[Rfam]
RNA: Y RNA
RNA sequence: GGCUGGUCUGAAGGUAAUGAGUUAUCUUAACUGAUUGUUCACAGUCAGUUACAGAUCAAACCCCUUGUUUUACUCUCCUCCCUUCUCACUAGUGCACUUGACUCAUCUUAG
Numbered sequence: 001g002g003c004u005g006g007u008c009u010g011a012a013g014g015u016a017a018u019g020a021g022u023u024a025u026c027u028u029a030a031c032u033g034a035u036u037g038u039u040c041a042c043a044g045u046c047a048g049u050u051a052c053a054g055a056u057c058a059a060a061c062c063c064c065u066u067g068u069u070u071u072a073c074u075c076u077c078c079u080c081c082c083u084u085c086u087c088a089c090u091a092g093u094g095c096a097c098u099u100g101a102c103u104c105a106u107c108u109u110a111g
Stems, first nucleotide, its partner, number of pairs: 001107002005103004010099002014095002016090001018088004043074003047070002